[Rfam]
RNA sequence: UACAGCUCUAGCUCUUUUCGAGUUUGUCCAGCAGGCCUUCCAGUCUUCACUGAACCGCCCCC
Numbered sequence: 001u002a003c004a005g006c007u008c009u010a011g012c013u014c015u016u017u018u019c020g021a022g023u024u025u026g027u028c029c030a031g032c033a034g035g036c037c038u039u040c041c042a043g044u045c046u047u048c049a050c051u052g053a054a055c056c057g058c059c060c061c062c
Stems, first nucleotide, its partner, number of pairs: 034059003039054001041052004
RNA: U7 small nuclear RNA
Organism: Rhinopithecus roxellana